[Rfam]
RNA: U4 spliceosomal RNA
RNA sequence: AGCUUGGCAGCCAGUGGCCAGUUAUCAUAAGCCAAUGAGGUUUAACCGAGGGUGAUAUUGCUGUUGAAAACUUUUCCCAAAAACCCGCCAUGAUGACUUGAACAUAAGUCAGCAUUGGCAAUUUGGACAGUCUCUCAGGAGG
Number, nucleotide and partner (000 for none) at each position: 001a000002g000003c000004u000005u000006g000007g000008c000009a000010g000011c000012c000013a000014g000015u000016g000017g000018c000019c000020a000021g000022u000023u000024a000025u055026c054027a053028u000029a000030a000031g000032c051033c050034a000035a000036u000037g000038a000039g047040g046041u045042u000043u000044a000045a041046c040047c039048g000049a000050g033051g032052g000053u027054g026055a025056u000057a000058u000059u000060g000061c000062u000063g000064u000065u000066g000067a000068a000069a000070a000071c000072u000073u000074u000075u000076c000077c000078c000079a000080a000081a000082a000083a000084c000085c000086c000087g119088c118089c117090a115091u114092g113093a000094u111095g110096a109097c108098u107099u106100g000101a000102a000103c000104a000105u000106a099107a098108g097109u096110c095111a094112g000113c092114a091115u090116u000117g089118g088119c087120a000121a000122u000123u000124u000125g000126g000127a000128c000129a000130g000131u142132c141133u140134c139135u000136c000137a000138g000139g134140a133141g132142g131